[Rfam]
RNA sequence: GCCGGGGUAGCCUAGCUCGGCAGGGCGGCGGACUCGUAAUCCGCAGGUCCCGGGUUCAAAUCCCGGUCCCGGCU
Numbered sequence: 001g002c003c004g005g006g007g008u009a010g011c012c013u014a015g016c017u018c019g020g021c022a023g024g025g026c027g028g029c030g031g032a033c034u035c036g037u038a039a040u041c042c043g044c045a046g047g048u049c050c051c052g053g054g055u056u057c058a059a060a061u062c063c064c065g066g067u068c069c070c071g072g073c074u
Stems, first nucleotide, its partner, number of pairs: 001073007010026004028044005050066005
Dot-bracket structure: (((((((..((((.........)))).(((((.......))))).....(((((.......)))))))))))).
This 74-nucleotide RNA from Thermococcus kodakarensis belongs to the Rfam family "tRNA". The base pairs follow the family's consensus structure, which is taken from published work. Rfam describes the family as follows. Transfer RNA (tRNA) molecules are approximately 80 nucleotides in length.